[Rfam]
RNA sequence: CUAACAGAGCUCUGUUGGCAGUAUGCCCACCUCCGUUAACAAGAAGAAAAAGAAAUUAAGAUGUGGAGGUGGACAGAAUGCCAAAACAAUUCUGUUAG
Numbered sequence: 001c002u003a004a005c006a007g008a009g010c011u012c013u014g015u016u017g018g019c020a021g022u023a024u025g026c027c028c029a030c031c032u033c034c035g036u037u038a039a040c041a042a043g044a045a046g047a048a049a050a051a052g053a054a055a056u057u058a059a060g061a062u063g064u065g066g067a068g069g070u071g072g073a074c075a076g077a078a079u080g081c082c083a084a085a086a087c088a089a090u091u092c093u094g095u096u097a098g
Stems, first nucleotide, its partner, number of pairs: 011088001015084006024075002027072010